[Rfam]
TPP riboswitch aptamer (THI element): a 104-nucleotide sequence from Brochothrix thermosphacta. The organism belongs to Brochothrix, within Bacteria.

RNA sequence: CGAUACCACUAGGGGGGCCUUUUUUUAAGGCUGAGAUAGGUUUGUCCUGACCCUUGGACCUGAUCUGGUUAGUACCAGCGGAGGAAAUGUGGCAGAAGUGAAGG
Numbered sequence: 001c002g003a004u005a006c007c008a009c010u011a012g013g014g015g016g017g018c019c020u021u022u023u024u025u026u027a028a029g030g031c032u033g034a035g036a037u038a039g040g041u042u043u044g045u046c047c048u049g050a051c052c053c054u055u056g057g058a059c060c061u062g063a064u065c066u067g068g069u070u071a072g073u074a075c076c077a078g079c080g081g082a083g084g085a086a087a088u089g090u091g092g093c094a095g096a097a098g099u100g101a102a103g104g
Stems, first nucleotide, its partner, number of pairs: 006092004011054004017031005038048003059084003065078004

Pairs were carried over by alignment from the consensus structure, which is taken from published work.